[Rfam]
RNA sequence: CGACCCGGCGUGCUUAGACGUAUAAGGCUUCAAAGAAACGGGAGAAAAAACCAACCCACCCCACCCCACCGUCUUCAGUCCCUCGGUCGGGUGAAUCGCGCCAACUGGACUGGAUUUCGGGCCGGUUGCCGGGCAUAUGCUCGGCCCGACAACAGCAGACAUGAGACGGCCCCCGGCGGGACUGGCAUCCCGGCGAGGGCCUGACCAAGCAGGAAGAAAGCCCUUCCUU
Numbered sequence: 001c002g003a004c005c006c007g008g009c010g011u012g013c014u015u016a017g018a019c020g021u022a023u024a025a026g027g028c029u030u031c032a033a034a035g036a037a038a039c040g041g042g043a044g045a046a047a048a049a050a051c052c053a054a055c056c057c058a059c060c061c062c063a064c065c066c067c068a069c070c071g072u073c074u075u076c077a078g079u080c081c082c083u084c085g086g087u088c089g090g091g092u093g094a095a096u097c098g099c100g101c102c103a104a105c106u107g108g109a110c111u112g113g114a115u116u117u118c119g120g121g122c123c124g125g126u127u128g129c130c131g132g133g134c135a136u137a138u139g140c141u142c143g144g145c146c147c148g149a150c151a152a153c154a155g156c157a158g159a160c161a162u163g164a165g166a167c168g169g170c171c172c173c174c175g176g177c178g179g180g181a182c183u184g185g186c187a188u189c190c191c192g193g194c195g196a197g198g199g200c201c202u203g204a205c206c207a208a209g210c211a212g213g214a215a216g217a218a219a220g221c222c223c224u225u226c227c228u229u
Base pairs, nucleotide, nucleotide: 010206016074017073018072019071079094080093082091083090084089110144111143112142113141168201169200170199171198172197174195175194178191179190180189181188212227213226214225215224216223
Dot-bracket structure: .........(.....((((...................................................))))....((.(((....))).))...............((((...........................)))).......................(((((.((..((((......))))..)).)))))....).....(((((......)))))..
Rfam assigns this 229-nucleotide sequence from Streptomyces sp. NRRL F-4428 to the family "Streptomyces sRNA 4677".
About the family: Located in the intergenic region between anti-sigma factor SCO4677 gene and a putative regulatory protein gene SCO4676. scr4677 expression requires the SCO4677 activity and scr4677 sRNA itself seem to affect the levels of the SCO4676-associated transcripts.
Pairs were carried over by alignment from the consensus structure.
NCBI's taxonomy places the organism under Bacteria, Bacillati, Actinomycetes, Streptomycetaceae, Streptomyces.